[Rfam]
RNA sequence: AAGGAUUCUCAGGGCGGGGUGUAAUUCCCCACCGGCGGUAGGAGGCCCAGCCUCAAGCCCGCGAGCGGCCUUUCACGAGGUGACAGCAGAUCCGGUCAAACUCCGGAGCCGACGGUCAUAGUCCGGAUGGAAGAGAAUGCAU
Dot-bracket structure: ..(.((((((......(((.......))).[[((((((..................[[))))..((...................))...(((((.......)))))]])).(((.....]]))).......)))))).)..

Description: Rfam assigns this 142-nucleotide sequence from Sulfitobacter noctilucicola to the family "FMN riboswitch aptamer (RFN element)". The literature on the family includes a 2002 paper in Nucleic Acids Res by Vitreschak et al., "Regulation of riboflavin biosynthesis and transport genes in bacteria by transcriptional and translational attenuation". A search with the family's covariance model found it, with a score of 117 bits.